[Rfam]
Nucleotides: 111
Base pairs, nucleotide, nucleotide: 003109004108005107006106007105008104013043014042015041016040017039021032022031023030027086028085029084044079045078046077047076049075050074052071053070054069055068083103088100089099090098091097092096
Number, partner (000 for none) and nucleotide at each position: 001000u002000u003109c004108u005107u006106a007105u008104c009000a010000a011000g012000a013043a014042a015041g016040g017039c018000a019000g020000a021032g022031g023030g024000a025000a026000a027086u028085g029084g030023c031022c032021c033000u034000g035000u036000g037000a038000a039017g040016c041015c042014u043013u044079a045078g046077c047076a048000a049075c050074c051000a052071u053070c054069c055068g056000g057000a058000a059000c060000c061000a062000c063000c064000a065000a066000a067000c068055c069054g070053g071052a072000a073000a074050g075049g076047u077046g078045c079044u080000a081000c082000a083103u084029c085028c086027a087000g088100c089099c090098c091097g092096c093000a094000u095000a096092g097091c098090g099089g100088g101000a102000a103083a104008g105007a106006u107005a108004a109003g110000u111000c
Rfam assigns this 111-nucleotide RNA from Chitinophaga pinensis to the family "SAM riboswitch aptamer (S box leader)". The SAM riboswitch is found upstream of a number of genes which code for proteins involved in methionine or cysteine biosynthesis in Gram-positive bacteria. The SAM riboswitch acts at the level of transcription termination control. The predicted structure consists of a complex stem-loop region followed by a single stem loop terminator region. Lineage of the source: Bacteria > Bacteroidota > Chitinophagales > Chitinophaga > Chitinophaga pinensis. Gene Ontology term of the family: regulation of gene expression. The base pairs follow the family's consensus structure, which is taken from published work.